[Rfam]
RNA: Histone 3' UTR stem-loop
Organism: Aedes aegypti
RNA sequence: CAAUCGGCCCUUUUCAGGGCCAACAAAUAUGUACUGAAGAGCUAUUU
Numbered sequence: 001c002a003a004u005c006g007g008c009c010c011u012u013u014u015c016a017g018g019g020c021c022a023a024c025a026a027a028u029a030u031g032u033a034c035u036g037a038a039g040a041g042c043u044a045u046u047u
Stems, first nucleotide, its partner, number of pairs: 006021006